[Rfam]
This 106-nucleotide sequence from Coprococcus eutactus belongs to the Rfam family "TPP riboswitch aptamer (THI element)". Lineage of the source: Bacteria > Bacillati > Bacillota > Lachnospirales > Coprococcus.
RNA sequence: AAAAGAGGACGCGGGAGCUUGUAGUACAGGCUGAGAGGAAGGUGUGACCUUCGACCGGAAACCUGAUUUGGAUAAUGCCAACGUAGGGAAGCCUGAUAGCAGACGU
Numbered sequence: 001a002a003a004a005g006a007g008g009a010c011g012c013g014g015g016a017g018c019u020u021g022u023a024g025u026a027c028a029g030g031c032u033g034a035g036a037g038g039a040a041g042g043u044g045u046g047a048c049c050u051u052c053g054a055c056c057g058g059a060a061a062c063c064u065g066a067u068u069u070g071g072a073u074a075a076u077g078c079c080a081a082c083g084u085a086g087g088g089a090a091g092c093c094u095g096a097u098a099g100c101a102g103a104c105g106u
Stems, first nucleotide, its partner, number of pairs: 006094003012057003017031005038052005062087004068081004